[Rfam]
RNA sequence: CAGGACUACUGGGGGUGCCAACACUAUGGCUGAGAGGGAAUACUUUUUCUAACCCCAACUACCUGAUCCGGUUAAUACCGGCGUAGGGAAGUAGCAAUCACUGACG
Numbered sequence: 001c002a003g004g005a006c007u008a009c010u011g012g013g014g015g016u017g018c019c020a021a022c023a024c025u026a027u028g029g030c031u032g033a034g035a036g037g038g039a040a041u042a043c044u045u046u047u048u049c050u051a052a053c054c055c056c057a058a059c060u061a062c063c064u065g066a067u068c069c070g071g072u073u074a075a076u077a078c079c080g081g082c083g084u085a086g087g088g089a090a091g092u093a094g095c096a097a098u099c100a101c102u103g104a105c106g
Stems, first nucleotide, its partner, number of pairs: 006094005011056004017030004037049004062087004068081004
RNA: TPP riboswitch aptamer (THI element)
Organism: Domibacillus mangrovi